RNA sequence: CCCCCCGAAGUAACCCUAAGGUUAGCCGGAGGUUAGGUAGAUGGCAGGGUAGAGCACUGAUAGAGGGGUUAGGGGACGAAAGUCCUCGCCUUUCUGUCAAACUCCGAACCUGUUAUCGCUGCAGCCUCUGAGAAAGGGCAUACGGGUAAGCUGUAUGUCCGAGACGGGAAUAGCCGCGACUCAGGUUAAGGUCCCUAAGUACUGAUUAAGUGUGAACACGAAGGGCGUCCUUGGCCUAAGACAGCAGGGAGGUUGGCUUAGAAGCAGCCAUCCUUAAAAGAGUGCGUAACAGCUCACCUGUCGAGGUCAGGGGCCCCGAAAAUGGACGGGGCUAAAUCAGUUACCGAGACCUGAGGGCACCGAAAGGUGAUCCGGUAGGGGGGCGUUCUGUAAGGGCAGAAGUUUGGCUGUGAAGUCAAAUGGACCUUGUAGAAAUGAAGAU
Numbered sequence: 001c002c003c004c005c006c007g008a009a010g011u012a013a014c015c016c017u018a019a020g021g022u023u024a025g026c027c028g029g030a031g032g033u034u035a036g037g038u039a040g041a042u043g044g045c046a047g048g049g050u051a052g053a054g055c056a057c058u059g060a061u062a063g064a065g066g067g068g069u070u071a072g073g074g075g076a077c078g079a080a081a082g083u084c085c086u087c088g089c090c091u092u093u094c095u096g097u098c099a100a101a102c103u104c105c106g107a108a109c110c111u112g113u114u115a116u117c118g119c120u121g122c123a124g125c126c127u128c129u130g131a132g133a134a135a136g137g138g139c140a141u142a143c144g145g146g147u148a149a150g151c152u153g154u155a156u157g158u159c160c161g162a163g164a165c166g167g168g169a170a171u172a173g174c175c176g177c178g179a180c181u182c183a184g185g186u187u188a189a190g191g192u193c194c195c196u197a198a199g200u201a202c203u204g205a206u207u208a209a210g211u212g213u214g215a216a217c218a219c220g221a222a223g224g225g226c227g228u229c230c231u232u233g234g235c236c237u238a239a240g241a242c243a244g245c246a247g248g249g250a251g252g253u254u255g256g257c258u259u260a261g262a263a264g265c266a267g268c269c270a271u272c273c274u275u276a277a278a279a280g281a282g283u284g285c286g287u288a289a290c291a292g293c294u295c296a297c298c299u300g301u302c303g304a305g306g307u308c309a310g311g312g313g314c315c316c317c318g319a320a321a322a323u324g325g326a327c328g329g330g331g332c333u334a335a336a337u338c339a340g341u342u343a344c345c346g347a348g349a350c351c352u353g354a355g356g357g358c359a360c361c362g363a364a365a366g367g368u369g370a371u372c373c374g375g376u377a378g379g380g381g382g383g384c385g386u387u388c389u390g391u392a393a394g395g396g397c398a399g400a401a402g403u404u405u406g407g408c409u410g411u412g413a414a415g416u417c418a419a420a421u422g423g424a425c426c427u428u429g430u431a432g433a434a435a436u437g438a439a440g441a442u
Stems, first nucleotide, its partner, number of pairs: 001383006011024005026132001027130006036120003040117008052105001053103002059098010072087006136160009165176003180355007190345003199342001201341006223317003227314010244301005250274003255269003275279001280295001284293002356373002358369004384437001386434010402421008
Description
Archaeal large subunit ribosomal RNA: a 442-nucleotide part of an RNA from Methanococcus aeolicus. Lineage of the source: Archaea > Methanococci > Methanococcales > Methanococcus > Methanococcus aeolicus.